[Rfam]
RNA sequence: GCGGGUGUAGCUCAUUUGGCUAGAGCGUUUCCUUGCCAAGGAAGAGGCAGCGGGUUCAAGUCCCGUCACUCGCU
Numbered sequence: 001g002c003g004g005g006u007g008u009a010g011c012u013c014a015u016u017u018g019g020c021u022a023g024a025g026c027g028u029u030u031c032c033u034u035g036c037c038a039a040g041g042a043a044g045a046g047g048c049a050g051c052g053g054g055u056u057c058a059a060g061u062c063c064c065g066u067c068a069c070u071c072g073c074u
Stems, first nucleotide, its partner, number of pairs: 001073007010026004028044005050066005
The family of this 74-nucleotide RNA sequence from a Candidatus Altimarinota bacterium is "tRNA". A search with the family's covariance model found it, with a score of 63 bits. Taxonomically the source falls in Candidatus Altimarinota (Bacteria, Bacteria candidate phyla). Its family is annotated with triplet codon-amino acid adaptor activity in the Gene Ontology.